The record is a 142-nucleotide RNA from Cucurbita maxima, which matches "small nucleolar RNA snoR137" in Rfam. The literature on the family includes a 2009 paper in Nucleic Acids Res by Chen and Wu, "Mining small RNA sequencing data: a new approach to identify small nucleolar RNAs in Arabidopsis". The match comes from Rfam's covariance-model search (115 bits).
RNA sequence: GUUGCUUCUUACUGGUGAACUCUUUCAGAUUCAAAUGAUGGAUGUUCAUGUUUCCGAAGCAUAAAUUGAUUUAAAUUUGCCAGUAUUAAACAGCGUUGUGUAAAUUCCUAUUGCACUCUGCUACCUGUCUCCUGGUACAAUU
Numbered sequence: 001g002u003u004g005c006u007u008c009u010u011a012c013u014g015g016u017g018a019a020c021u022c023u024u025u026c027a028g029a030u031u032c033a034a035a036u037g038a039u040g041g042a043u044g045u046u047c048a049u050g051u052u053u054c055c056g057a058a059g060c061a062u063a064a065a066u067u068g069a070u071u072u073a074a075a076u077u078u079g080c081c082a083g084u085a086u087u088a089a090a091c092a093g094c095g096u097u098g099u100g101u102a103a104a105u106u107c108c109u110a111u112u113g114c115a116c117u118c119u120g121c122u123a124c125c126u127g128u129c130u131c132c133u134g135g136u137a138c139a140a141u142u
Stems, first nucleotide, its partner, number of pairs: 003061006016048005021042003025038001079136005085130001092122003098116003